[Rfam]
RNA sequence: GCCUAUUGCUGGGGGUCUCUUAAUCCUUUAUCUAAUCAGGGUUAUAGAGUGAGAGUUACCCUUUGAACCUGACGCGGAUAAUCCCGCCGUAGGGAAGCCACUGAUAAGCCUC
Numbered sequence: 001g002c003c004u005a006u007u008g009c010u011g012g013g014g015g016u017c018u019c020u021u022a023a024u025c026c027u028u029u030a031u032c033u034a035a036u037c038a039g040g041g042u043u044a045u046a047g048a049g050u051g052a053g054a055g056u057u058a059c060c061c062u063u064u065g066a067a068c069c070u071g072a073c074g075c076g077g078a079u080a081a082u083c084c085c086g087c088c089g090u091a092g093g094g095a096a097g098c099c100a101c102u103g104a105u106a107a108g109c110c111u112c
Stems, first nucleotide, its partner, number of pairs: 006100001008098003011062004017049004068093004074087004
Dot-bracket structure: .....(.(((((((..((((.........................)))).........)))).....((((..((((......))))..))))..))).)............

Rfam assigns this 112-nucleotide RNA from Methylovorus glucosotrophus to the family "TPP riboswitch aptamer (THI element)".
Pairs were carried over by alignment from the consensus structure, which is taken from published work.
Vitamin B(1) in its active form thiamin pyrophosphate (TPP) is an essential coenzyme that is synthesised by coupling of pyrimidine and thiazole moieties in bacteria.
It scores 59 bits against the family's covariance model.